[Rfam]
Rfam assigns this 75-nucleotide RNA sequence from Sulfurovum sp. AR to the family "c-di-GMP-I riboswitch aptamer".
The family's consensus secondary structure is taken from published work.
From the family's description: GEMM was predicted in a large-scale screen for bacterial structured RNA regulatory elements.

RNA sequence: UAUUGAAAAAGCCAAGUUCAUCGCGAGGUGGGUACGGAAAGUUAUGGGUCUCACGUAGAUCGCCAGACUACCAAU
Numbered sequence: 001u002a003u004u005g006a007a008a009a010a011g012c013c014a015a016g017u018u019c020a021u022c023g024c025g026a027g028g029u030g031g032g033u034a035c036g037g038a039a040a041g042u043u044a045u046g047g048g049u050c051u052c053a054c055g056u057a058g059a060u061c062g063c064c065a066g067a068c069u070a071c072c073a074a075u
Base pairs, nucleotide, nucleotide: 012037013036017032018031019030020029021028022027040069041068042067043066045065046064047063048060049059050058
Dot-bracket structure: ...........((...((((((....))))))...))..((((.((((((.......)))..)))))))......